[Rfam]
RNA sequence: UGUUGUAAAAGGCAAACUCGUUGAAAAGCGGGGACGCAAAGCAAUGGACCUAAAUCUAUUCAAUUAUUAGACAGGGCCGCCAAGCUGCCGGC
Dot-bracket structure: ...........((...((((((....))))))...))..(((..(((.((....((((.........))))...))...))).)))......
Numbered sequence: 001u002g003u004u005g006u007a008a009a010a011g012g013c014a015a016a017c018u019c020g021u022u023g024a025a026a027a028g029c030g031g032g033g034a035c036g037c038a039a040a041g042c043a044a045u046g047g048a049c050c051u052a053a054a055u056c057u058a059u060u061c062a063a064u065u066a067u068u069a070g071a072c073a074g075g076g077c078c079g080c081c082a083a084g085c086u087g088c089c090g091g092c
Stems, first nucleotide, its partner, number of pairs: 012037002017032006040086003045082003049076002055071004

Annotation
The family of this 92-nucleotide sequence from Pelolinea submarina is "c-di-GMP-I riboswitch aptamer". Taxonomically the source falls in Pelolinea (Bacteria, Anaerolineae, Anaerolineales, Anaerolineaceae). Rfam 15.1 lists 5,092 matches to the family in 1,772 species.